[Rfam]
RNA sequence: ACCCCACGACAGGGGCGCUCUGCGAUCACAGAGCCGAGAUUUUUCGAUGCGCGGAAAAGACCCUCCGAACCUGACGCGGGUCAUGCCGCCGUAGGAAGUCGAGUCCCCCGCUCU
Numbered sequence: 001a002c003c004c005c006a007c008g009a010c011a012g013g014g015g016c017g018c019u020c021u022g023c024g025a026u027c028a029c030a031g032a033g034c035c036g037a038g039a040u041u042u043u044u045c046g047a048u049g050c051g052c053g054g055a056a057a058a059g060a061c062c063c064u065c066c067g068a069a070c071c072u073g074a075c076g077c078g079g080g081u082c083a084u085g086c087c088g089c090c091g092u093a094g095g096a097a098g099u100c101g102a103g104u105c106c107c108c109c110g111c112u113c114u
Base pairs, nucleotide, nucleotide: 007101008100009099010098011064012063013062014061017034018033019032020031021030041057042056043055044054045053070095071094072093073092076089077088078087079086

The family of this 114-nucleotide RNA from a Verrucomicrobiales bacterium is "TPP riboswitch aptamer (THI element)". Vitamin B(1) in its active form thiamin pyrophosphate (TPP) is an essential coenzyme that is synthesised by coupling of pyrimidine and thiazole moieties in bacteria.